Rfam assigns this 304-nucleotide RNA sequence from Cicer arietinum to the family "Plant signal recognition particle RNA". It is annotated as a non-coding RNA gene. It scores 176 bits against the family's covariance model. Lineage of the source: Eukaryota > eudicotyledons > Pentapetalae > rosids > Cicer. The family is grouped with related families in Rfam's "SRP clan".
RNA sequence: GCCGAGUUGGGUAACUCCUGCUUGUAACUCAAGUGAGGGCGUCAAUGUGGUGGAACAUUUCUCGGAGAUUAUUGGGUGGGGCUAUGUUUGCUGCAAAUGCUGGCUUGCCCUCCCCAAGUUUAGAGAUGAUCAAUGGGGCCUUGGCGAAGGCCCAGUCUUGUUGGUCCUAGACAUUGUAUACGCGUGAAGCUGGCUUAACAGAGCAGCGAAAACUAUUUGACUCCUAACAGUGGACGGAUAACAGGCCGGUGCACUUCUGGCCCAAUACCUAAUAAUGCCUCUAGCAAAUGAACCACCACCAUUU
Numbered sequence: 001g002c003c004g005a006g007u008u009g010g011g012u013a014a015c016u017c018c019u020g021c022u023u024g025u026a027a028c029u030c031a032a033g034u035g036a037g038g039g040c041g042u043c044a045a046u047g048u049g050g051u052g053g054a055a056c057a058u059u060u061c062u063c064g065g066a067g068a069u070u071a072u073u074g075g076g077u078g079g080g081g082c083u084a085u086g087u088u089u090g091c092u093g094c095a096a097a098u099g100c101u102g103g104c105u106u107g108c109c110c111u112c113c114c115c116a117a118g119u120u121u122a123g124a125g126a127u128g129a130u131c132a133a134u135g136g137g138g139c140c141u142u143g144g145c146g147a148a149g150g151c152c153c154a155g156u157c158u159u160g161u162u163g164g165u166c167c168u169a170g171a172c173a174u175u176g177u178a179u180a181c182g183c184g185u186g187a188a189g190c191u192g193g194c195u196u197a198a199c200a201g202a203g204c205a206g207c208g209a210a211a212a213c214u215a216u217u218u219g220a221c222u223c224c225u226a227a228c229a230g231u232g233g234a235c236g237g238a239u240a241a242c243a244g245g246c247c248g249g250u251g252c253a254c255u256u257c258u259g260g261c262c263c264a265a266u267a268c269c270u271a272a273u274a275a276u277g278c279c280u281c282u283a284g285c286a287a288a289u290g291a292a293c294c295a296c297c298a299c300c301a302u303u304u
Base pairs, nucleotide, nucleotide: 001040002039003038004023005022006021007020009018010017011016028037029036030035044303045302046301047299048298049297050296051295052294053293056290057289058288059287060286061284062283064281065280068276069275070274071273072272073271074270075269076268077267079263080262081261082260083259084258086256090254094251095250100249101248102247103246104245105244106243107242109237110236114233115232116231118228119227120226123223124222125221128166129165130164131163132162133161134160135159136158137157138156140155141154143152144151145150173216174215176213177212183208184207185206190201191200192199